The record is a 79-nucleotide RNA from Clarias magur, which matches "Small nucleolar RNA SNORD111" in Rfam. Its family is annotated with nucleolus and RNA processing in the Gene Ontology.
Nucleotides: 079
Stems, first nucleotide, its partner, number of pairs: 001079002004076002
Number, partner (000 for none) and nucleotide at each position: 001079g002078a003000u004076g005075u006000a007000g008000a009000a010000a011000u012000g013000a014000u015000g016000a017000u018000a019000u020000a021000c022000c023000u024000u025000c026000a027000u028000g029000u030000c031000u032000c033000u034000u035000c036000u037000c038000u039000g040000a041000c042000u043000a044000a045000u046000g047000c048000u049000g050000a051000a052000g053000a054000g055000a056000a057000u058000g059000u060000u061000g062000a063000u064000a065000u066000c067000u068000g069000a070000u071000c072000u073000c074000u075005a076004c077000u078002u079001c
Rfam classes the family as a C/D-box small nucleolar RNA. Rfam 15.1 lists 894 matches to the family in 541 species.